The family of this 107-nucleotide sequence from Aurantiacibacter gangjinensis is "SAM-I/IV (S-adenosyl methionine) riboswitch aptamer". The family is grouped with related families in Rfam's "SAM clan". The family's consensus secondary structure is taken from published work.
RNA sequence: GCUCUGCAUUUCGAGAUGGGCAGCAAUGCCCGCGCCAACCUGCCAGACCGGCAAGGUGGUGGUCCCUGACAGGACGAUGCGGCCAGCAGGCAACCGGUCAACUGCCC
Numbered sequence: 001g002c003u004c005u006g007c008a009u010u011u012c013g014a015g016a017u018g019g020g021c022a023g024c025a026a027u028g029c030c031c032g033c034g035c036c037a038a039c040c041u042g043c044c045a046g047a048c049c050g051g052c053a054a055g056g057u058g059g060u061g062g063u064c065c066c067u068g069a070c071a072g073g074a075c076g077a078u079g080c081g082g083c084c085a086g087c088a089g090g091c092a093a094c095c096g097g098u099c100a101a102c103u104g105c106c107c
Stems, first nucleotide, its partner, number of pairs: 006080005015033001017032005034060003039056003042052003046103001082091003
Dot-bracket structure: .....(((((....(.(((((......))))))(((..((((((.[...))).))).)))...............))))).(((....)))...........]....